[Rfam]
RNA sequence: ACGGACUGACGGGGGUGCCUUCAUGGCUGAGAUGGGCGGAACGCCGCCCGAACCCGUUGACCUGAACAGGAUAAUGCCUGCGUAGGGAUGUCACGCCGCAUCAUGC
Dot-bracket structure: ......((((.(((.((((.....)))......(((((......))))))..))).....((((..((((......))))..))))...)))).............

The family of this 106-nucleotide RNA sequence from Bifidobacterium primatium is "TPP riboswitch aptamer (THI element)".
Pairs were carried over by alignment from the consensus structure, which is taken from published work.
The match comes from Rfam's covariance-model search (67 bits).
Rfam links the family to the GO term thiamine pyrophosphate binding.